[Rfam]
RNA sequence: AAGCAGAUGAUGAGACUUUUGGAUUCCCCUUCCAACUACGGUGUGAGGAAAAGUCCUGUUUCUGAUGCU
Dot-bracket structure: .((((............................................................))))
RNA: Small nucleolar RNA snoR60